[Rfam]
RNA sequence: GUUCCCUGUGAUGUUCAUACCAACCAUGCUAAUGCUGAGAUCAUUUGCUGAAGAACUCAUUGUAUGCUUUUCUCAGGGAAUU
Numbered sequence: 001g002u003u004c005c006c007u008g009u010g011a012u013g014u015u016c017a018u019a020c021c022a023a024c025c026a027u028g029c030u031a032a033u034g035c036u037g038a039g040a041u042c043a044u045u046u047g048c049u050g051a052a053g054a055a056c057u058c059a060u061u062g063u064a065u066g067c068u069u070u071u072c073u074c075a076g077g078g079a080a081u082u
Base pairs, nucleotide, nucleotide: 001081002080003079004078005077006076007075008074
This 82-nucleotide sequence from Elaeis guineensis belongs to the Rfam family "Small nucleolar RNA snoR53Y".
Rfam links the family to the GO terms nucleolus and RNA processing.
Clan: snoR53 clan.
NCBI's taxonomy places the organism under Eukaryota, Euphyllophyta, Arecaceae, Elaeidinae, Elaeis.
The literature on the family includes a 2001 paper in RNA by Brown et al., "Multiple snoRNA gene clusters from Arabidopsis".